[Rfam]
RNA sequence: GGGAGUGGCUGUGUCCAUGGUGGACAUCUUGGACUUCAAAUCCAAUGUCAGGCAGGUGGACCUGUCUGUGGUGGGUUCGAUUCCCACACAUUCCC
Numbered sequence: 001g002g003g004a005g006u007g008g009c010u011g012u013g014u015c016c017a018u019g020g021u022g023g024a025c026a027u028c029u030u031g032g033a034c035u036u037c038a039a040a041u042c043c044a045a046u047g048u049c050a051g052g053c054a055g056g057u058g059g060a061c062c063u064g065u066c067u068g069u070g071g072u073g074g075g076u077u078c079g080a081u082u083c084c085c086a087c088a089c090a091u092u093c094c095c
Stems, first nucleotide, its partner, number of pairs: 001095007008087001011027006029045005049068006072086004
RNA: Selenocysteine transfer RNA